[Rfam]
RNA sequence: UCCAAGGCCAGAGCUCUAUCCACUGUGCCACUUAGCUAUCCCUGAAACAAUUCUUUAAAACCCCAUCUCAGGGCAGCUAGAUGGCACAGUGGAUAGAGCAUUGGCCCUGAA
Numbered sequence: 001u002c003c004a005a006g007g008c009c010a011g012a013g014c015u016c017u018a019u020c021c022a023c024u025g026u027g028c029c030a031c032u033u034a035g036c037u038a039u040c041c042c043u044g045a046a047a048c049a050a051u052u053c054u055u056u057a058a059a060a061c062c063c064c065a066u067c068u069c070a071g072g073g074c075a076g077c078u079a080g081a082u083g084g085c086a087c088a089g090u091g092g093a094u095a096g097a098g099c100a101u102u103g104g105c106c107c108u109g110a111a
Stems, first nucleotide, its partner, number of pairs: 001111001003109001006106006013099017